The record is a 53-nucleotide sequence from Gossypium lobatum, which matches "Plastid-atpF group II-D1 intron" in Rfam. On this family, see Richter et al., Plant Commun 2023: "Retrograde signaling in plants: A critical review focusing on the GUN pathway and beyond". NCBI's taxonomy places the organism under Eukaryota, Streptophyta, Spermatophyta, rosids, Gossypium.

RNA sequence: AAUGUUUUUUUUUAUAUAAAACACUCAUGUCGAUAAAACGAUUUGAGCCUCUU
Numbered sequence: 001a002a003u004g005u006u007u008u009u010u011u012u013u014a015u016a017u018a019a020a021a022c023a024c025u026c027a028u029g030u031c032g033a034u035a036a037a038a039c040g041a042u043u044u045g046a047g048c049c050u051c052u053u
Base pairs, nucleotide, nucleotide: 011033012032014030015029016028017027
Rfam links the family to the GO term Group II intron splicing.